This 54-nucleotide sequence from Sinocyclocheilus anshuiensis belongs to the Rfam family "UnaL2 LINE 3' element". Rfam describes the family as follows. The eel long interspersed element (LINE) UnaL2 and its partner short interspersed element (SINE) share a conserved 3' tail containing a stem-loop that is critical for their retrotransposition. The base pairs follow the family's consensus structure, which is taken from published work. It is annotated as a cis-regulatory element. Its family is annotated with transposition, RNA-mediated in the Gene Ontology.

RNA sequence: UGUCCUCAUUUGUAUAAGUCGCUUUGGAUAAAAGAGUCUGCUAAAUGACUAAAU
Numbered sequence: 001u002g003u004c005c006u007c008a009u010u011u012g013u014a015u016a017a018g019u020c021g022c023u024u025u026g027g028a029u030a031a032a033a034g035a036g037u038c039u040g041c042u043a044a045a046u047g048a049c050u051a052a053a054u
Base pairs, nucleotide, nucleotide: 013043015040016039020036022034023033024032025031